[Rfam]
Nucleotides: 061
Base pairs, nucleotide, nucleotide: 003057004056005055006054007053009023010022011021012020013019026058032048033047034046035045036044037043
Number, partner (000 for none) and nucleotide at each position: 001000a002000u003057c004056g005055u006054u007053c008000a009023u010022c011021u012020g013019c014000g015000u016000a017000a018000a019013g020012c021011a022010g023009a024000c025000g026058g027000a028000a029000g030000u031000a032048g033047g034046g035045a036044g037043u038000g039000g040000g041000g042000g043037a044036c045035u046034c047033c048032c049000g050000a051000a052000g053007g054006a055005a056004c057003g058026c059000g060000c061000c
Rfam assigns this 61-nucleotide RNA sequence from Geminocystis sp. M7585_C2015_104 to the family "Glutamine riboswitch aptamer (glnA leader)".
On this family, see Ames and Breaker, RNA Biol 2011: "Bacterial aptamers that selectively bind glutamine".